[Rfam]
The record is a 78-nucleotide RNA sequence from Paenibacillus pectinilyticus, which matches "ZMP/ZTP riboswitch aptamer (pfl RNA motif)" in Rfam. It scores 60 bits against the family's covariance model. Pairs were carried over by alignment from the consensus structure, which is taken from published work.
RNA sequence: UAAACUAUGUGUAACUGGCGGAGCAUGGGGAACCAUGAGGGAGCACAUAGAUAACAGCCGUACGCCUGGGCAGAGGUA
Numbered sequence: 001u002a003a004a005c006u007a008u009g010u011g012u013a014a015c016u017g018g019c020g021g022a023g024c025a026u027g028g029g030g031a032a033c034c035a036u037g038a039g040g041g042a043g044c045a046c047a048u049a050g051a052u053a054a055c056a057g058c059c060g061u062a063c064g065c066c067u068g069g070g071c072a073g074a075g076g077u078a
Stems, first nucleotide, its partner, number of pairs: 003052001005050008015040002017066004025036004055073001057071003
Dot-bracket structure: ..(.((((((((..(([[[[....((((....))))..))..)))))))).)..(.(((...]]]]..))).).....